[Rfam]
RNA: Connexin-43 internal ribosome entry site (IRES)
Organism: Callorhinus ursinus
RNA sequence: AGCUUUUACGAGGUAUCAGCACUUUUCUUUCAUUAGGGGGAAGGAGUGAAGAAAGUACCAAACAGCAGCAGACUUUUAAACUUUAAAUAGACAGGUCUGAGUGCCUGAACUUGCUUUUUCAUUUUACUUCAUCCUCCAAGGAGUUCAAUCACUUGGCGUGCCUACUUCUUUUAAAAAAAAAAGUAAAAUAAAAAAAAAAA
Numbered sequence: 001a002g003c004u005u006u007u008a009c010g011a012g013g014u015a016u017c018a019g020c021a022c023u024u025u026u027c028u029u030u031c032a033u034u035a036g037g038g039g040g041a042a043g044g045a046g047u048g049a050a051g052a053a054a055g056u057a058c059c060a061a062a063c064a065g066c067a068g069c070a071g072a073c074u075u076u077u078a079a080a081c082u083u084u085a086a087a088u089a090g091a092c093a094g095g096u097c098u099g100a101g102u103g104c105c106u107g108a109a110c111u112u113g114c115u116u117u118u119u120c121a122u123u124u125u126a127c128u129u130c131a132u133c134c135u136c137c138a139a140g141g142a143g144u145u146c147a148a149u150c151a152c153u154u155g156g157c158g159u160g161c162c163u164a165c166u167u168c169u170u171u172u173a174a175a176a177a178a179a180a181a182a183g184u185a186a187a188a189u190a191a192a193a194a195a196a197a198a199a200a
Stems, first nucleotide, its partner, number of pairs: 002020003007015003029143003033139002036136004040130004048123002051120001053119003070098006099114001101112001103110001166200002169196004